[Rfam]
RNA sequence: ACGGUCUGGCGAAAGGCUCCUGUGUUGCUGAACCUGCCCAGCGGCGGGUGCGGCCCGUACCAGGCAGCCCUGCCGUGACCUAGAGUAAGUGCCCGGGACAGUGUCUCCUGGGCUUUGAACUUGCAGUAACAGGUGUGAACAUGCUAGCAGCAGUUUGAUGAUCAUGUAUGAUACUGCAAACAAGA
Numbered sequence: 001a002c003g004g005u006c007u008g009g010c011g012a013a014a015g016g017c018u019c020c021u022g023u024g025u026u027g028c029u030g031a032a033c034c035u036g037c038c039c040a041g042c043g044g045c046g047g048g049u050g051c052g053g054c055c056c057g058u059a060c061c062a063g064g065c066a067g068c069c070c071u072g073c074c075g076u077g078a079c080c081u082a083g084a085g086u087a088a089g090u091g092c093c094c095g096g097g098a099c100a101g102u103g104u105c106u107c108c109u110g111g112g113c114u115u116u117g118a119a120c121u122u123g124c125a126g127u128a129a130c131a132g133g134u135g136u137g138a139a140c141a142u143g144c145u146a147g148c149a150g151c152a153g154u155u156u157g158a159u160g161a162u163c164a165u166g167u168a169u170g171a172u173a174c175u176g177c178a179a180a181c182a183a184g185a
Base pairs, nucleotide, nucleotide: 003080004079005078006077009074015069016068017067018066019064020063021062022061024060025059027054028053029052030051032049033048034047092112093111094110095109096108097107098106121179122178123177124176125175126174127173128172130170131169136164137163138162140160141159142158146155147154148153